[Rfam]
RNA sequence: AGAAACGGGAAAUUGCGGUACUGCAUUGACUGCGGUAUUGAGGAAAGUCCAGACUGCCACGACCUGUGAUGGUCGUAAUGUUCGUGCCCAUCGCAAGGUGGGGCAGAGUGAAUGCUCUGACGACGGCAAAAUCGACUCAUGUAGCCGAAAGUAGCCAUAAAGUGCACAGAGAAUGAGUAGGUUGGCAACAACCUAGUGAAAAUUGGUAAACUCCACGAGGCAGAAACCCAAAUUUGGUAGGGGAGCUUCCUGUAAGGAAUACGAACCGAAGGGAAGAACGCGCUUUUGUGCGUUAGAUAGAUGAUUUCCUAAAACAGAAACUGGCUUACGGUU
Dot-bracket structure: ...(((((((((((.((((((((.........))))))))....[[[.[[[[.(((((((((((......)))))).....(((((((((((....))))))(((((((....)))))).)((.(((.....((.(.......).))......))).....((((............(((((((....)))))))..........))..))))))))))))))...(((..........)))...((((((...................))))))((((((......))))))........)))))))...........]]]]]]].).)))